[Rfam]
About this RNA:
Shown here is a 100-nucleotide RNA from Caenorhabditis latens, a member of the family "mir-36 microRNA precursor family". Its family is annotated with RISC complex and miRNA-mediated post-transcriptional gene silencing in the Gene Ontology. The match comes from Rfam's covariance-model search (51 bits). Pairs were carried over by alignment from the consensus structure, which was predicted with WAR.
RNA sequence: AUUCUUGGAUCGGAUCAGACUUCAGCCUGUUUUUUUUCUCGUUGAUACUCCUAGUUUGGCUAUCACCGGGUGAAAACUGGUUCAAGUCUGGUCCUAUCCA
Numbered sequence: 001a002u003u004c005u006u007g008g009a010u011c012g013g014a015u016c017a018g019a020c021u022u023c024a025g026c027c028u029g030u031u032u033u034u035u036u037u038c039u040c041g042u043u044g045a046u047a048c049u050c051c052u053a054g055u056u057u058g059g060c061u062a063u064c065a066c067c068g069g070g071u072g073a074a075a076a077c078u079g080g081u082u083c084a085a086g087u088c089u090g091g092u093c094c095u096a097u098c099c100a
Stems, first nucleotide, its partner, number of pairs: 016090007024082004029077004034073002037070002040068001043065005
Dot-bracket structure: ...............(((((((.((((.((((.((.((.(..(((((.............)))))..))).)))))).)))).)))))))..........